Source information
This 353-nucleotide RNA sequence from Ascosphaera apis belongs to the Rfam family "RNase MRP". The family's RNA type in Rfam is ribozyme. NCBI's taxonomy places the organism under Eukaryota, Opisthokonta, Fungi, Dikarya, Ascosphaera apis. RNase MRP is an enzymatically active ribonucleoprotein with two distinct roles in eukaryotes. In mitochondria it plays a direct role in the initiation of mitochondrial DNA replication. In the nucleus it is involved in precursor rRNA processing, where it cleaves the internal transcribed spacer 1 between 18S and 5.8S rRNAs. Despite distinct functions, RNase MRP has been shown to be evolutionarily related to RNase P. Like eukaryotic RNase P, RNase MRP is not catalytically active without associated protein subunits.
[Rfam]
RNA sequence: UCCUCGCUCAAAGAAUCACAUUCAAAGCUUACGAACAGGAAGGGCCCUCGUGGCCUUUUCACACCACAGCGCUUUGGGAGAAAGUCCCCGGACAGUCCGUUUGCCCUUGUGGCUAAUCGGCUUAUGCGGGAAACGCGCCGCCAUAGAAGCAGCUGAUCGUGGCUCACGCCUUCCUUGGCUGCGCAGCUGUUGCACGACCUUUGGCACUUGUCUAAGGAUACAAUUGUGCAUCAGCUGCGUGCUCAAAGUCGAGGCUGGUUGCUCUUCGUCAUCAGUGUAUAGAUAUGUGAUUGCUUUUGCAUGGUCCUCUGGAUUAUGGAAGUAACUCAAUGGGGCUCAUUCUUGAGGCGAGG
Numbered sequence: 001u002c003c004u005c006g007c008u009c010a011a012a013g014a015a016u017c018a019c020a021u022u023c024a025a026a027g028c029u030u031a032c033g034a035a036c037a038g039g040a041a042g043g044g045c046c047c048u049c050g051u052g053g054c055c056u057u058u059u060c061a062c063a064c065c066a067c068a069g070c071g072c073u074u075u076g077g078g079a080g081a082a083a084g085u086c087c088c089c090g091g092a093c094a095g096u097c098c099g100u101u102u103g104c105c106c107u108u109g110u111g112g113c114u115a116a117u118c119g120g121c122u123u124a125u126g127c128g129g130g131a132a133a134c135g136c137g138c139c140g141c142c143a144u145a146g147a148a149g150c151a152g153c154u155g156a157u158c159g160u161g162g163c164u165c166a167c168g169c170c171u172u173c174c175u176u177g178g179c180u181g182c183g184c185a186g187c188u189g190u191u192g193c194a195c196g197a198c199c200u201u202u203g204g205c206a207c208u209u210g211u212c213u214a215a216g217g218a219u220a221c222a223a224u225u226g227u228g229c230a231u232c233a234g235c236u237g238c239g240u241g242c243u244c245a246a247a248g249u250c251g252a253g254g255c256u257g258g259u260u261g262c263u264c265u266u267c268g269u270c271a272u273c274a275g276u277g278u279a280u281a282g283a284u285a286u287g288u289g290a291u292u293g294c295u296u297u298u299g300c301a302u303g304g305u306c307c308u309c310u311g312g313a314u315u316a317u318g319g320a321a322g323u324a325a326c327u328c329a330a331u332g333g334g335g336c337u338c339a340u341u342c343u344u345g346a347g348g349c350g351a352g353g
Base pairs, nucleotide, nucleotide: 002353003352004351005350006349007348008346009345010344011343014292015291016290017289018288019287022078023076024075025074026073027072028071040058041057042056043055044054045053046052083337084336086335087334088333089332125137126136127135128134185263186262187261193253195251196250197249198248200247201246202245203244204242205241206240207239228235229234294322295321296320297319298318299317